[Rfam]
RNA sequence: CCUGCCGAAGUUUCCCUCAGGAUAGCAGAAGCUCAAAACAGUUUUAUGAGGUAAAGCGAAUGAUUAGACGUCUCGGGGCGAAAUAGCCUUAGCGUAUUCUCAAACUUUAAAUAUGUAAGAAGCCUUCCUUUUUUAAUUAAAGGUAGGCAUGAAUGUAGAGCUUUUAGUGGGCCAUUUUUGGUAAGCAGAACUGGCGAUGCGGGAUGAACCGAACGUGAAGUUAAAGUGCCAGAAUACACGCUCAUCAGACACCACAAAAGGUGUUAGUUCAUCUAGACAGCCGGACGGUGGCCAUGGAAGUCGGAAUCCGCUAAGGAGUGUGUAACAACUCACCGGCCGAAUGAACUAGCCCUGAAAAUGGAUGGCGCUUAAGCGUGUUACUUAUACUUCGCCUUUAGUCUUUGGACUAAAGAGUAGGCAGGCGUGGAGGUAGUGACGAAGCCUUGGAUGUGAAUCUGGGUCGAACUUCCUCUAGUGCAGAU
Numbered sequence: 001c002c003u004g005c006c007g008a009a010g011u012u013u014c015c016c017u018c019a020g021g022a023u024a025g026c027a028g029a030a031g032c033u034c035a036a037a038a039c040a041g042u043u044u045u046a047u048g049a050g051g052u053a054a055a056g057c058g059a060a061u062g063a064u065u066a067g068a069c070g071u072c073u074c075g076g077g078g079c080g081a082a083a084u085a086g087c088c089u090u091a092g093c094g095u096a097u098u099c100u101c102a103a104a105c106u107u108u109a110a111a112u113a114u115g116u117a118a119g120a121a122g123c124c125u126u127c128c129u130u131u132u133u134u135a136a137u138u139a140a141a142g143g144u145a146g147g148c149a150u151g152a153a154u155g156u157a158g159a160g161c162u163u164u165u166a167g168u169g170g171g172c173c174a175u176u177u178u179u180g181g182u183a184a185g186c187a188g189a190a191c192u193g194g195c196g197a198u199g200c201g202g203g204a205u206g207a208a209c210c211g212a213a214c215g216u217g218a219a220g221u222u223a224a225a226g227u228g229c230c231a232g233a234a235u236a237c238a239c240g241c242u243c244a245u246c247a248g249a250c251a252c253c254a255c256a257a258a259a260g261g262u263g264u265u266a267g268u269u270c271a272u273c274u275a276g277a278c279a280g281c282c283g284g285a286c287g288g289u290g291g292c293c294a295u296g297g298a299a300g301u302c303g304g305a306a307u308c309c310g311c312u313a314a315g316g317a318g319u320g321u322g323u324a325a326c327a328a329c330u331c332a333c334c335g336g337c338c339g340a341a342u343g344a345a346c347u348a349g350c351c352c353u354g355a356a357a358a359u360g361g362a363u364g365g366c367g368c369u370u371a372a373g374c375g376u377g378u379u380a381c382u383u384a385u386a387c388u389u390c391g392c393c394u395u396u397a398g399u400c401u402u403u404g405g406a407c408u409a410a411a412g413a414g415u416a417g418g419c420a421g422g423c424g425u426g427g428a429g430g431u432a433g434u435g436a437c438g439a440a441g442c443c444u445u446g447g448a449u450g451u452g453a454a455u456c457u458g459g460g461u462c463g464a465a466c467u468u469c470c471u472c473u474a475g476u477g478c479a480g481a482u
Stems, first nucleotide, its partner, number of pairs: 001422006011024001013022003026167001027165006042120007054108001055106002062101002066097001068095004075090005171195004176190004200211003215392007225382003234379001236378006259353003263350010280337005286310003292304002311315001316331001320329002393412007423477001425474006432467003441461004446457004